[Rfam]
RNA sequence: CAAGAAAUGUAGGGGGAUCGGUGUUGCCGGUUGAGAUUUCAUCCGUAAGAUGAUGACCCUUAGAACCUGAACUGGUUCAGACCAGCGUAGGGAACAUGAUUUUUUUUACA
Numbered sequence: 001c002a003a004g005a006a007a008u009g010u011a012g013g014g015g016g017a018u019c020g021g022u023g024u025u026g027c028c029g030g031u032u033g034a035g036a037u038u039u040c041a042u043c044c045g046u047a048a049g050a051u052g053a054u055g056a057c058c059c060u061u062a063g064a065a066c067c068u069g070a071a072c073u074g075g076u077u078c079a080g081a082c083c084a085g086c087g088u089a090g091g092g093a094a095c096a097u098g099a100u101u102u103u104u105u106u107u108a109c110a
Stems, first nucleotide, its partner, number of pairs: 007097004011060004016054001017031005039053004066091004072085004